[Rfam]
RNA sequence: ACUAUAUAUUGGGGUCUAUCGAAGGAUCGUUCAUGUCGUAGUCCCUGUCAGAUGAGUUCUCUCAUCUGCUAAUAUUUCC
Number, nucleotide and partner (000 for none) at each position: 001a000002c000003u000004a000005u000006a000007u000008a000009u000010u000011g000012g045013g044014g043015u000016c041017u040018a000019u000020c000021g078022a077023a076024g075025g000026a073027u000028c038029g037030u000031u000032c000033a000034u000035g000036u000037c029038g028039u000040a017041g016042u000043c014044c013045c012046u000047g000048u000049c068050a067051g066052a065053u064054g063055a062056g000057u000058u000059c000060u000061c000062u055063c054064a053065u052066c051067u050068g049069c000070u000071a000072a000073u026074a000075u024076u023077u022078c021079c000
RNA: Mammalian CPEB3 ribozyme